Description:
The record is a 102-nucleotide RNA sequence from Lentibacillus sp. CBA3610, which matches "Purine riboswitch aptamer" in Rfam. The organism belongs to Lentibacillus, within Bacteria.

[Rfam]
RNA sequence: AUGAUAUAAAUAGACGCCAUUCAUAUAUCCUCGAAAAUAGGGUUCGAAAGUUUCUACCGGGGUACCGUAAAUACCUUGACUAUGAAGGCGGAAUUCAAUGGG
Numbered sequence: 001a002u003g004a005u006a007u008a009a010a011u012a013g014a015c016g017c018c019a020u021u022c023a024u025a026u027a028u029c030c031u032c033g034a035a036a037a038u039a040g041g042g043u044u045c046g047a048a049a050g051u052u053u054c055u056a057c058c059g060g061g062g063u064a065c066c067g068u069a070a071a072u073a074c075c076u077u078g079a080c081u082a083u084g085a086a087g088g089c090g091g092a093a094u095u096c097a098a099u100g101g102g
Stems, first nucleotide, its partner, number of pairs: 018088001020086006031047005058078007

Gene Ontology term of the family: purine nucleobase biosynthetic process. A search with the family's covariance model found it, with a score of 77 bits.